[Rfam]
Nucleotides: 132
Base pairs, nucleotide, nucleotide: 002056003055004054005053006052007051009048010047012045013044014043015042016040017039018038019037020036021035022034023033068125069124070123071122074117075116077114083112085110086109087108088107089106092102093101
Number, partner (000 for none) and nucleotide at each position: 001000u002056g003055c004054c005053u006052u007051u008000g009048u010047g011000c012045u013044g014043c015042c016040c017039a018038u019037u020036c021035a022034u023033u024000c025000c026000u027000g028000u029000c030000c031000a032000g033023a034022a035021u036020g037019a038018a039017u040016g041000u042015g043014g044013u045012g046000u047010c048009a049000a050000a051007a052006a053005a054004g055003g056002c057000a058000a059000a060000c061000a062000g063000g064000a065000a066000u067000u068125c069124u070123u071122g072000c073000u074117c075116a076000a077114a078000c079000u080000g081000c082000u083112g084000a085110u086109g087108g088107a089106g090000c091000u092102g093101g094000u095000u096000a097000u098000u099000c100000a101093c102092c103000u104000u105000u106089c107088u108087c109086c110085a111000c112083c113000c114077u115000g116075u117074g118000u119000u120000u121000g122071c123070a124069a125068g126000g127000a128000c129000a130000a131000a132000a
Notes:
The record is a 132-nucleotide RNA from Aegotheles bennettii, which matches "Small nucleolar RNA SNORA13" in Rfam. NCBI's taxonomy places the organism under Eukaryota, Deuterostomia, Dinosauria, Aves, Aegotheles. A search with the family's covariance model found it, with a score of 79 bits.